[Rfam]
Shown here is a 51-nucleotide sequence, a member of the family "Glutamine riboswitch aptamer (glnA leader)". On this family, see Ames and Breaker, RNA Biol 2011: "Bacterial aptamers that selectively bind glutamine". Rfam's curators put it in the seed alignment.
RNA sequence: AUCGUUCAACUCGUAUGAGUCGGAAGUAAGCAGUUGCUGAAGGAACGCACC
Numbered sequence: 001a002u003c004g005u006u007c008a009a010c011u012c013g014u015a016u017g018a019g020u021c022g023g024a025a026g027u028a029a030g031c032a033g034u035u036g037c038u039g040a041a042g043g044a045a046c047g048c049a050c051c
Stems, first nucleotide, its partner, number of pairs: 003047005009020004023048001029038003